[Rfam]
RNA sequence: ACAUGGGUGAAUUCUGCAUUGGCUUUUGCAAUGGCUAAUGGAGUCAGACACCAUGCAAGAAUAAAAUUUGCCUCAGAUUUAUCUAGUGCCAGGCUGUGCUAAAGCAGUAUGUUUGGAUCUGAAAGGGAUACAAAA
Numbered sequence: 001a002c003a004u005g006g007g008u009g010a011a012u013u014c015u016g017c018a019u020u021g022g023c024u025u026u027u028g029c030a031a032u033g034g035c036u037a038a039u040g041g042a043g044u045c046a047g048a049c050a051c052c053a054u055g056c057a058a059g060a061a062u063a064a065a066a067u068u069u070g071c072c073u074c075a076g077a078u079u080u081a082u083c084u085a086g087u088g089c090c091a092g093g094c095u096g097u098g099c100u101a102a103a104g105c106a107g108u109a110u111g112u113u114u115g116g117a118u119c120u121g122a123a124a125g126g127g128a129u130a131c132a133a134a135a
Stems, first nucleotide, its partner, number of pairs: 002055005014043002017040003069128001071126001073122005084117001088113001090111002093108004
Dot-bracket structure: .(((((.......((.(((..................))).)).......))))).............(.(.(((((......(...(.((.((((........)))).)).)...))))))...).).......
Background
The family of this 135-nucleotide RNA sequence from Pantherophis guttatus is "Small nucleolar RNA SNORA15". By type it is an H/ACA-box small nucleolar RNA. It scores 51 bits against the family's covariance model. About the family: ACA15 is a member of the H/ACA class of snoRNA that guide the sites of modification of uridines to pseudouridines. On this family, see Huttenhofer et al., EMBO J 2001: "RNomics: an experimental approach that identifies 201 candidates for novel, small, non-messenger RNAs in mouse". Its family is annotated with RNA processing and nucleolus in the Gene Ontology.